[Rfam]
Nucleotides: 071
Base pairs, nucleotide, nucleotide: 011059012058013057014056015055016054017053018052021049022048023047024046025045026044027043028042029041
Number, partner (000 for none) and nucleotide at each position: 001000g002000u003000a004000g005000u006000u007000c008000a009000a010000a011059u012058u013057g014056a015055c016054u017053c018052u019000a020000g021049u022048a023047g024046g025045g026044a027043g028042u029041c030000c031000u032000u033000u034000u035000a036000u037000g038000a039000g040000c041029g042028a043027c044026u045025c046024c047023c048022u049021a050000a051000c052018g053017g054016a055015g056014u057013c058012a059011g060000a061000u062000u063000g064000a065000u066000c067000u068000c069000c070000u071000u